A member of the RNA family "Makes More Granules Regulator RNA (mmgR)" from Caenispirillum bisanense, 84 nucleotides long.
Lineage of the source: Bacteria > Pseudomonadati > Pseudomonadota > Novispirillaceae > Caenispirillum.
RNA sequence: CGCAGAUGCCCCGCUGCUGCAUCUUGGACGUUUCCUCCCUAGACUUGGGCCGCGCUUCGUGCGCGGCCUUUUUUUGUCGUCAAA
Numbered sequence: 001c002g003c004a005g006a007u008g009c010c011c012c013g014c015u016g017c018u019g020c021a022u023c024u025u026g027g028a029c030g031u032u033u034c035c036u037c038c039c040u041a042g043a044c045u046u047g048g049g050c051c052g053c054g055c056u057u058c059g060u061g062c063g064c065g066g067c068c069u070u071u072u073u074u075u076g077u078c079g080u081c082a083a084a
Stems, first nucleotide, its partner, number of pairs: 008029001010027002047069009